[Rfam]
RNA sequence: GCUGUGCAGGCAGUGUUGUUAGCUGAUUGUUCCACCUCAGCAAUCACUAACAACACUACCAGUACAAC
Numbered sequence: 001g002c003u004g005u006g007c008a009g010g011c012a013g014u015g016u017u018g019u020u021a022g023c024u025g026a027u028u029g030u031u032c033c034a035c036c037u038c039a040g041c042a043a044u045c046a047c048u049a050a051c052a053a054c055a056c057u058a059c060c061a062g063u064a065c066a067a068c
Stems, first nucleotide, its partner, number of pairs: 003066004009060002012057011024046008
Rfam assigns this 68-nucleotide sequence from Myripristis murdjan to the family "mir-34 microRNA precursor family". The organism belongs to Myripristis, within Eukaryota. Human mir-34a was discovered computationally and later experimentally verified. The mature sequence is excised from the 5' arm of the hairpin. It scores 63 bits against the family's covariance model. Pairs were carried over by alignment from the consensus structure, which was predicted with RNAalifold. The literature on the family includes a 2003 paper in Science by Lim et al., "Vertebrate microRNA genes".